Archaeal large subunit ribosomal RNA: a 600-nucleotide part of an RNA from Methanopyrus kandleri.
[Rfam]
RNA sequence: CGGCUAAGCCGUCGGGUGGAUGCCUUGGCUCGGGCGCCGAGGAAGGCCGUGGCAAGCUGCGAUAAGCCCGGGCGAGGCGCAUGCAGCCGUGGAACCCGGGAUCGCCGAAUGGGACCUCUCGCCGGGGCCGAAAGGUCCCGGCACUCCGGGGGGAAACCCCGGGCCCUCGUGGCCCGGGGGAGUACCCCCGGAGGGGGAACCCGCCGAACUGAAACAUCUUAGUAGGCGGAGGAAAAGAAAGCAACACGCGAUGCCGUGAGUAGGGGCGACCGAAAACGGCAGAGGGCAAACUGAACACCCGCCCGAAAGGGCGGGUGGAUGUGGGGUUGCAGGCCCGGGCCGCCUAUGUGGCCGUCUCCCCCGGAACGGCCGAAGUGCCCUGGAACGGGCCGCCGGAGAGGGUGACAGCCCCGUAGGCCGCCGGGGGACGGCCGCUGGCCCGGGCCUGAGUACCGUCGGUUGGAUAUCCGGCGGGAAUCUGGGGGACAUCGGCCCCCAACCCUAAAUACGUCCCGAGUCCGAUAGCGAACAAGUACCGUGAGGGAAAGGUGAAAAGAACCCCGGAAGGGGAGUGAAAAGAGCCUGAAACCCGACGGCGAU
Dot-bracket structure: .......(((((((((.....(((..((((((((((........((((((........))).....((((((...(((.......)))......))))))...)))....(((....))).......................(((((((((................................)))))))))......((((((.....((....))......))))).).........((.....))...(((((.....((.....))....)))))..((((....(((.......((((....)))).........)))...........((((.............((.(............(((...(.((((......)))))..(...).(((.......)))...)))............).))....))))..........(((((((........)))))))......(((((.......)))))..)))).....)).)))))).))...............((....))....)).................................).....)))))))))...